[Rfam]
RNA sequence: CGGUGAUGCCUCCUAACCGUUAGCAAUGGAGGCACUCGGUCAUGCUGUGGGGAAGUCAUAAGCUUUAACCUUAGGUGCAAGUCAUCAAUAGUGUGGCGUGAGGGUGGGUUAAAUGCCCG
Numbered sequence: 001c002g003g004u005g006a007u008g009c010c011u012c013c014u015a016a017c018c019g020u021u022a023g024c025a026a027u028g029g030a031g032g033c034a035c036u037c038g039g040u041c042a043u044g045c046u047g048u049g050g051g052g053a054a055g056u057c058a059u060a061a062g063c064u065u066u067a068a069c070c071u072u073a074g075g076u077g078c079a080a081g082u083c084a085u086c087a088a089u090a091g092u093g094u095g096g097c098g099u100g101a102g103g104g105u106g107g108g109u110u111a112a113a114u115g116c117c118c119g
Stems, first nucleotide, its partner, number of pairs: 001019004007034007035102004039097008049071003052066005074086004105119005
The family of this 119-nucleotide sequence from Cytobacillus depressus is "epsC RNA". It scores 107 bits against the family's covariance model.